[Rfam]
RNA: Bacterial RNase P class A
RNA sequence: GAAGUGAGCCGGAUGGUCGCUGCUGUGGAGGUCUCCGUGACUGAAGCAGGAGAGGAAAGUCCGGGCUUCAUAGGGCAGGGUGCCAGGUAACGCCUGGGCGGUGAAAGCCGACGGAAAGUGCAGCAGAGAGUAGACCGCCUCAUUCGUGAGGUAAGGGUGAAAGGGUGCGGUAAGAGCGCACCGCGUGUCUGGGAACAGUUCACGGCAUGGCAAACCCCACCAGAAGCAAGACCAAAUAGGAAUCCUAGGUGCGGCCCGUACUGGAUUCGGGUAGGUCGCUUGAGCGUAUGAGUGAUUGUACGCCUAGAGGAAUGACCAUCCUCGACAGAACCCGGCUUAUAGGCUCACUUCACCU
Numbered sequence: 001g002a003a004g005u006g007a008g009c010c011g012g013a014u015g016g017u018c019g020c021u022g023c024u025g026u027g028g029a030g031g032u033c034u035c036c037g038u039g040a041c042u043g044a045a046g047c048a049g050g051a052g053a054g055g056a057a058a059g060u061c062c063g064g065g066c067u068u069c070a071u072a073g074g075g076c077a078g079g080g081u082g083c084c085a086g087g088u089a090a091c092g093c094c095u096g097g098g099c100g101g102u103g104a105a106a107g108c109c110g111a112c113g114g115a116a117a118g119u120g121c122a123g124c125a126g127a128g129a130g131u132a133g134a135c136c137g138c139c140u141c142a143u144u145c146g147u148g149a150g151g152u153a154a155g156g157g158u159g160a161a162a163g164g165g166u167g168c169g170g171u172a173a174g175a176g177c178g179c180a181c182c183g184c185g186u187g188u189c190u191g192g193g194a195a196c197a198g199u200u201c202a203c204g205g206c207a208u209g210g211c212a213a214a215c216c217c218c219a220c221c222a223g224a225a226g227c228a229a230g231a232c233c234a235a236a237u238a239g240g241a242a243u244c245c246u247a248g249g250u251g252c253g254g255c256c257c258g259u260a261c262u263g264g265a266u267u268c269g270g271g272u273a274g275g276u277c278g279c280u281u282g283a284g285c286g287u288a289u290g291a292g293u294g295a296u297u298g299u300a301c302g303c304c305u306a307g308a309g310g311a312a313u314g315a316c317c318a319u320c321c322u323c324g325a326c327a328g329a330a331c332c333c334g335g336c337u338u339a340u341a342g343g344c345u346c347a348c349u350u351c352a353c354c355u
Stems, first nucleotide, its partner, number of pairs: 001351010011340001012320007020052002023049004057338003061335005066226004073257004079221004083097005098112001099110004113217002118215002120211002135156002137152006164182006183206001184204004189198003230277004240268006248262005284303008
Dot-bracket structure: ((((((((((((((((((.((.((((...................)))).))....[[[.[[[[[((((...[[[[..(((((((((.....)))))(((((....)))).)((...((((.............((((((((....))))))..)).......((((((.......))))))(((((.(((....)))..)))).)...))..)))))))).))))...((((......((((((..(((((.]]]]))))))))))).....))))......((((((((....))))))))..........)))))))..........]]]]]]]].).))))))))))....